This 68-nucleotide sequence from Bombyx mori belongs to the Rfam family "mir-2774 microRNA precursor family". The base pairs follow the family's consensus structure, which was predicted with RNAalifold. A reference for the family is Liu et al. (2010), "MicroRNAs of Bombyx mori identified by Solexa sequencing", BMC Genomics.
RNA sequence: ACAAUAUCCGGGACGGUCGGUCUACCGAGCAAUUUCUCCCGCUCGGUGGAAUAUCUUCCCUUGUUCGA
Numbered sequence: 001a002c003a004a005u006a007u008c009c010g011g012g013a014c015g016g017u018c019g020g021u022c023u024a025c026c027g028a029g030c031a032a033u034u035u036c037u038c039c040c041g042c043u044c045g046g047u048g049g050a051a052u053a054u055c056u057u058c059c060c061u062u063g064u065u066c067g068a
Stems, first nucleotide, its partner, number of pairs: 004065001011059003016054002021050010

NCBI's taxonomy places the organism under Eukaryota, Opisthokonta, Lepidoptera, Bombycidae, Bombyx.